[Rfam]
RNA sequence: UUGAAGAACCGGCAAACCAGCCGAAAGGCUGCGACGCGAAGCUAUAGGGCCUGUAAGAUGGCAGCCAGUUGUAUUU
Numbered sequence: 001u002u003g004a005a006g007a008a009c010c011g012g013c014a015a016a017c018c019a020g021c022c023g024a025a026a027g028g029c030u031g032c033g034a035c036g037c038g039a040a041g042c043u044a045u046a047g048g049g050c051c052u053g054u055a056a057g058a059u060g061g062c063a064g065c066c067a068g069u070u071g072u073a074u075u076u
Stems, first nucleotide, its partner, number of pairs: 012037002018031005040070004047066002049062003
Annotation:
This 76-nucleotide RNA from Faecalibacterium duncaniae belongs to the Rfam family "c-di-GMP-I riboswitch aptamer". For this family Rfam cites "Identification of 22 candidate structured RNAs in bacteria using the CMfinder comparative genomics pipeline" (Weinberg et al., Nucleic Acids Res, 2007). Pairs were carried over by alignment from the consensus structure, which is taken from published work.